[Rfam]
RNA: U7 small nuclear RNA
RNA sequence: GAGUGUUCCCGUUCUUUUAAAAUUUGUCUAGCAGGCUUUCCAGUUUUCACUGGAAAGCCUCC
Numbered sequence: 001g002a003g004u005g006u007u008c009c010c011g012u013u014c015u016u017u018u019a020a021a022a023u024u025u026g027u028c029u030a031g032c033a034g035g036c037u038u039u040c041c042a043g044u045u046u047u048c049a050c051u052g053g054a055a056a057g058c059c060u061c062c
Base pairs, nucleotide, nucleotide: 034059035058036057037056038055039054040053041052042051043050044049